The record is a 110-nucleotide RNA sequence from Xaviernesmea oryzae, which matches "Alphaproteobacterial ar15" in Rfam. NCBI's taxonomy places the organism under Bacteria, Alphaproteobacteria, Hyphomicrobiales, Rhizobiaceae, Xaviernesmea. By type it is a small RNA. It scores 116 bits against the family's covariance model.

RNA sequence: AGCUGAUGCACAUGACGGUCUUCUCCCAGUGCCGUCGCAGCAGCUGUUCCCCUCUGGAGGUUUUAGACCUUCACACUUAAAGGCCCCAAGUUUACUUGUGGGCCUCUUUU
Dot-bracket structure: (((((.(((.....((((.............)))).))).))))).........(((((((.....))))))).......((((((((((....)))).)))))).....
Numbered sequence: 001a002g003c004u005g006a007u008g009c010a011c012a013u014g015a016c017g018g019u020c021u022u023c024u025c026c027c028a029g030u031g032c033c034g035u036c037g038c039a040g041c042a043g044c045u046g047u048u049c050c051c052c053u054c055u056g057g058a059g060g061u062u063u064u065a066g067a068c069c070u071u072c073a074c075a076c077u078u079a080a081a082g083g084c085c086c087c088a089a090g091u092u093u094a095c096u097u098g099u100g101g102g103c104c105u106c107u108u109u110u
Stems, first nucleotide, its partner, number of pairs: 001045005007039003015035004055073007081105006087098004